[Rfam]
RNA sequence: CUGCAUUCUUUUCACACCCCCGCCGGGACGGCCUGCGCAACCGCGCAAUUUUUUUCCGGUUCUUGCGCUCGGUCAGUUUACUUACUACAAGUAAUGGGUACUAUGUACGCCGGCCAGUUUCUCUUUGUUGAGAGA
Dot-bracket structure: ..............................((..(.(.(..((.(.((...)).).)).).).)..))...(((.((.(((.((.(((.(....)..))).)).))).)).)))...((((((......))))))